[Rfam]
About this RNA:
Lysine riboswitch aptamer: a 182-nucleotide sequence from Jeotgalibacillus soli. About the family: Riboswitches are metabolite binding domains within certain messenger RNAs that serve as precision sensors for their corresponding targets.
RNA sequence: CGAUGGGGUAGAGGAGCAGUCUUCAAGAGUACGCUGUGUAAGGAUGACAACGAUGAUCGCAGCUGAAAGGGAAGAAUUGCCGAAGUGAUAAUGAUCCGUCAAGGGCCUAUCACUGGGGUUAUCUUUAAGAAGGAUAACACUCUCAUUGCAGAAAAUUUUUGCAAUGAGGAGCUACAGAUCGU
Numbered sequence: 001c002g003a004u005g006g007g008g009u010a011g012a013g014g015a016g017c018a019g020u021c022u023u024c025a026a027g028a029g030u031a032c033g034c035u036g037u038g039u040a041a042g043g044a045u046g047a048c049a050a051c052g053a054u055g056a057u058c059g060c061a062g063c064u065g066a067a068a069g070g071g072a073a074g075a076a077u078u079g080c081c082g083a084a085g086u087g088a089u090a091a092u093g094a095u096c097c098g099u100c101a102a103g104g105g106c107c108u109a110u111c112a113c114u115g116g117g118g119u120u121a122u123c124u125u126u127a128a129g130a131a132g133g134a135u136a137a138c139a140c141u142c143u144c145a146u147u148g149c150a151g152a153a154a155a156u157u158u159u160u161g162c163a164a165u166g167a168g169g170a171g172c173u174a175c176a177g178a179u180c181g182u
Base pairs, nucleotide, nucleotide: 008175009174010173011172016080017079018078019077020076021074022073023072024071033063034062035061036060037059038058084114085113086112087111088110089109090108095103115141116140118138119137120136121135122134123133124132125131143167144166145165146164147163148162149161150160151159
The organism belongs to Jeotgalibacillus, within Bacteria.